This 88-nucleotide RNA from Trabulsiella odontotermitis belongs to the Rfam family "sroD RNA". The family's consensus secondary structure was predicted with PFOLD. By type it is a small RNA. From the family's description: This family consists of a number of bacterial sroD RNA genes of around 90 bases in length. sroD is found in several Enterobacterial species but its function is unknown. Taxonomically the source falls in Trabulsiella (Bacteria, Pseudomonadota, Gammaproteobacteria, Enterobacterales).

RNA sequence: CUACGUGACGAAGCCCGCGCCAAAGUAGACAAUAAAGGCUGAGCUUCGAGACAGUCGCCCCAGACGCCGGUUCUACCGGCGUUUUUUU
Number, nucleotide and partner (000 for none) at each position: 001c000002u000003a000004c000005g000006u000007g000008a000009c000010g000011a000012a000013g000014c000015c000016c057017g056018c000019g039020c038021c037022a000023a000024a000025g000026u000027a000028g000029a000030c000031a000032a000033u000034a000035a000036a000037g021038g020039c019040u000041g000042a000043g000044c000045u000046u000047c000048g000049a000050g000051a000052c000053a000054g000055u000056c017057g016058c000059c000060c000061c000062a000063g083064a082065c081066g080067c079068c078069g077070g076071u000072u000073c000074u000075a000076c070077c069078g068079g067080c066081g065082u064083u063084u000085u000086u000087u000088u000
Record summary:
The literature on the family includes a 2003 paper in Nucleic Acids Res by Vogel et al., "RNomics in Escherichia coli detects new sRNA species and indicates parallel transcriptional output in bacteria". The match comes from Rfam's covariance-model search (92 bits).